[Rfam]
RNA sequence: GGUGAACCCAGAGGGGUGUGCCUAAGAACACAGGUGCAUUGGUUCUUUUUUUCCAAUUGCUCAAACCAAAAUAUAUUUGUGUUCUCAGGUCACCCUUUUGGGGUCACC
Numbered sequence: 001g002g003u004g005a006a007c008c009c010a011g012a013g014g015g016g017u018g019u020g021c022c023u024a025a026g027a028a029c030a031c032a033g034g035u036g037c038a039u040u041g042g043u044u045c046u047u048u049u050u051u052u053c054c055a056a057u058u059g060c061u062c063a064a065a066c067c068a069a070a071a072u073a074u075a076u077u078u079g080u081g082u083u084c085u086c087a088g089g090u091c092a093c094c095c096u097u098u099u100g101g102g103g104u105c106a107c108c
Base pairs, nucleotide, nucleotide: 007102008101011098012097013096014095016093017092018091025085026084027083028082029081030080031079032078033077
MIR398 microRNA precursor family: a 108-nucleotide RNA sequence from Capsicum annuum. Taxonomically the source falls in Capsicum (Eukaryota, eudicotyledons, asterids, Capsiceae).